[Rfam]
Nucleotides: 142
Base pairs, nucleotide, nucleotide: 002058003057004056005055006054007053008052009050013046014045015044016043017042018041021038024032025031074134075133076132077131078130087123088122092119093118094117095115096114097113098112099111
Number, partner (000 for none) and nucleotide at each position: 001000a002058g003057c004056c005055u006054g007053a008052u009050g010000c011000c012000a013046c014045g015044u016043c017042a018041c019000c020000u021038g022000g023000a024032g025031c026000u027000a028000c029000g030000u031025g032024c033000c034000u035000u036000g037000a038021c039000c040000g041018g042017u043016g044015a045014u046013g047000c048000u049000u050009u051000g052008a053007u054006u055005a056004g057003g058002c059000c060000a061000a062000a063000a064000u065000u066000g067000a068000g069000u070000u071000a072000u073000u074134u075133c076132a077131c078130a079000c080000g081000c082000u083000g084000a085000u086000a087123g088122g089000a090000a091000c092119c093118u094117g095115g096114g097113a098112c099111u100000g101000c102000c103000a104000a105000u106000c107000u108000a109000u110000c111099a112098g113097u114096c115095c116000a117094c118093a119092g120000a121000g122088c123087c124000g125000a126000u127000u128000u129000c130078u131077g132076u133075g134074a135000u136000u137000a138000u139000a140000u141000u142000u
Description: A member of the RNA family "Small nucleolar RNA snoR2/U65" from Zizania palustris, 142 nucleotides long. Rfam 15.1 lists 908 matches to the family in 230 species. Gene Ontology terms of the family: nucleolus and RNA processing. The base pairs follow the family's consensus structure, which was predicted with WAR.